[Rfam]
RNA sequence: UCAGCAGGUCGCCUUAUCGCUCUGUUGUUUUAUUACCACAGGGAGGAAAGUCCGGACACCACAGUGCAGUAUAGCGGGUAACACCCGUCACCCUGAAGUUCUCAUACUUUAAGGUAGGACAAGUGCAACAGAAAGCAAGUACAGGUAAUGCUGUAGUGAAAUCAGGUAAACUCUAUACGGUGAAACGUCAUGUAUACCGGCGAUUAAGGGUAGCACGCCCAAGCCGAAGGGUAGGCGGAUAGAGCCUUUGGGUAACCAGGGGCCCAGAUAAAUGAUAAGGGACUGUAUUUUGCGAUACAGCUUACAGAAUCCGGCUUAUGGCCUGCUUUUUAC
Numbered sequence: 001u002c003a004g005c006a007g008g009u010c011g012c013c014u015u016a017u018c019g020c021u022c023u024g025u026u027g028u029u030u031u032a033u034u035a036c037c038a039c040a041g042g043g044a045g046g047a048a049a050g051u052c053c054g055g056a057c058a059c060c061a062c063a064g065u066g067c068a069g070u071a072u073a074g075c076g077g078g079u080a081a082c083a084c085c086c087g088u089c090a091c092c093c094u095g096a097a098g099u100u101c102u103c104a105u106a107c108u109u110u111a112a113g114g115u116a117g118g119a120c121a122a123g124u125g126c127a128a129c130a131g132a133a134a135g136c137a138a139g140u141a142c143a144g145g146u147a148a149u150g151c152u153g154u155a156g157u158g159a160a161a162u163c164a165g166g167u168a169a170a171c172u173c174u175a176u177a178c179g180g181u182g183a184a185a186c187g188u189c190a191u192g193u194a195u196a197c198c199g200g201c202g203a204u205u206a207a208g209g210g211u212a213g214c215a216c217g218c219c220c221a222a223g224c225c226g227a228a229g230g231g232u233a234g235g236c237g238g239a240u241a242g243a244g245c246c247u248u249u250g251g252g253u254a255a256c257c258a259g260g261g262g263c264c265c266a267g268a269u270a271a272a273u274g275a276u277a278a279g280g281g282a283c284u285g286u287a288u289u290u291u292g293c294g295a296u297a298c299a300g301c302u303u304a305c306a307g308a309a310u311c312c313g314g315c316u317u318a319u320g321g322c323c324u325g326c327u328u329u330u331u332a333c
Base pairs, nucleotide, nucleotide: 003327004326005325006324007323008322009321010320011319012280013279014278015277016276017275018274020043021042022041023040024039025038027036028035048317049316050315052314053313054312055311056310057182058181059180060179064216065215066214067213069178070177071176072175073174074088075087076086077085078084089117090115091114092113118173119172123171124170125167126166140155141154142153143152144151186237187236188235189234198226199225200224201223208220209219210218211217244263245262246261247260248259249258250257251256
Bacterial RNase P class A: a 333-nucleotide RNA from Poritiphilus flavus. Pairs were carried over by alignment from the consensus structure, which is taken from published work. From the family's description: Ribonuclease P (RNase P) is a ubiquitous endoribonuclease, found in archaea, bacteria and eukarya as well as chloroplasts and mitochondria. NCBI's taxonomy places the organism under Bacteria, Bacteroidota, Flavobacteriia, Flavobacteriales, Poritiphilus. The family is grouped with related families in Rfam's "RNaseP clan". A search with the family's covariance model found it, with a score of 184 bits.